[Rfam]
RNA sequence: UCUCGGUCCGAGGGGUGUUCCGUGUUGCGGAACUGAGAUGGCAAGUUGCCGAACCCUUAGAACCUGAUCCGGGUCAUGCCGGCGAAGGGACGGAAUCCUUAGCCAAA
Numbered sequence: 001u002c003u004c005g006g007u008c009c010g011a012g013g014g015g016u017g018u019u020c021c022g023u024g025u026u027g028c029g030g031a032a033c034u035g036a037g038a039u040g041g042c043a044a045g046u047u048g049c050c051g052a053a054c055c056c057u058u059a060g061a062a063c064c065u066g067a068u069c070c071g072g073g074u075c076a077u078g079c080c081g082g083c084g085a086a087g088g089g090a091c092g093g094a095a096u097c098c099u100u101a102g103c104c105a106a107a
Base pairs, nucleotide, nucleotide: 007094008093009092010091011057012056013055014054016051017033018032019031020030021029040050041049042048043047063088064087065086069082070081071080072079

Shown here is a 107-nucleotide sequence from Labrenzia sp. THAF82, a member of the family "TPP riboswitch aptamer (THI element)".
Its family is annotated with thiamine pyrophosphate binding in the Gene Ontology.
Pairs were carried over by alignment from the consensus structure, which is taken from published work.